[Rfam]
The family of this 87-nucleotide sequence from Lepeophtheirus salmonis is "mir-277 microRNA precursor family". The organism belongs to Lepeophtheirus, within Eukaryota. The family's consensus secondary structure was predicted with RNAalifold.
RNA sequence: UGAGUUCAGGGAUGCGUAUCAGAAUUGCGUUUACACGUAAAUUUCAAUGGCUGUAAAUGCAUCCUCUGGUAUUGAAUCCCUGCUCAG
Numbered sequence: 001u002g003a004g005u006u007c008a009g010g011g012a013u014g015c016g017u018a019u020c021a022g023a024a025u026u027g028c029g030u031u032u033a034c035a036c037g038u039a040a041a042u043u044u045c046a047a048u049g050g051c052u053g054u055a056a057a058u059g060c061a062u063c064c065u066c067u068g069g070u071a072u073u074g075a076a077u078c079c080c081u082g083c084u085c086a087g
Base pairs, nucleotide, nucleotide: 008081009080010079011078016072017071018070019069020068021067022066023065027060028059029058030057031056032055033054034053035052
Dot-bracket structure: .......((((....((((((((...(((((((((................)))))))))....)))))))).....))))......